[Rfam]
RNA sequence: UACUACCAAAUCCUAUUUCCACCUCCACGUGGUGAUCGCUGGGAACUCUUUCUUAACGAAAAGCUGCGGACGAAGAAGG
Dot-bracket structure: ...........(((.((((.(((.......)))...........(.(.((((.....)))).).)......)))).)))

Shown here is a 79-nucleotide RNA sequence from Hermetia illucens, a member of the family "drz-agam-1 ribozyme". The family's consensus secondary structure is taken from published work. A reference for the family is Webb et al. (2009), "Widespread occurrence of self-cleaving ribozymes", Science. Rfam links the family to the GO term catalytic activity.